[Rfam]
Annotation:
The record is a 76-nucleotide RNA, which matches "RAGATH-1 hammerhead ribozyme" in Rfam. Its family is annotated with RNA nuclease activity in the Gene Ontology.
RNA sequence: AAGACAGCCUAGGAGUCUAUAAAAUAUGUGCCGAUGAGACUAGGACGAAACUAUCCUCAGUUGAGGAUAGUUCACU
Numbered sequence: 001a002a003g004a005c006a007g008c009c010u011a012g013g014a015g016u017c018u019a020u021a022a023a024a025u026a027u028g029u030g031c032c033g034a035u036g037a038g039a040c041u042a043g044g045a046c047g048a049a050a051c052u053a054u055c056c057u058c059a060g061u062u063g064a065g066g067a068u069a070g071u072u073c074a075c076u
Base pairs, nucleotide, nucleotide: 002018003017004016005015008044009043010042011041012040026076028075029074030073038046050071051070052069053068054067055066056065057064058063